RNA sequence: GCGCGGGUGGCGGAAUAGGUAGACGCGCUAGCUUGAGGUGCUAGUCCUCUAUUAAUGAGGGUGGGGGUUCAAGUCCCCCUCCGCGCA
Numbered sequence: 001g002c003g004c005g006g007g008u009g010g011c012g013g014a015a016u017a018g019g020u021a022g023a024c025g026c027g028c029u030a031g032c033u034u035g036a037g038g039u040g041c042u043a044g045u046c047c048u049c050u051a052u053u054a055a056u057g058a059g060g061g062u063g064g065g066g067g068u069u070c071a072a073g074u075c076c077c078c079c080u081c082c083g084c085g086c087a
Stems, first nucleotide, its partner, number of pairs: 001086007010026003028044005063079005
Rfam assigns this 87-nucleotide sequence from Nesterenkonia xinjiangensis to the family "tRNA".
Taxonomically the source falls in Nesterenkonia (Bacteria, Bacillati, Actinomycetota, Actinomycetes).
The family's RNA type in Rfam is transfer RNA.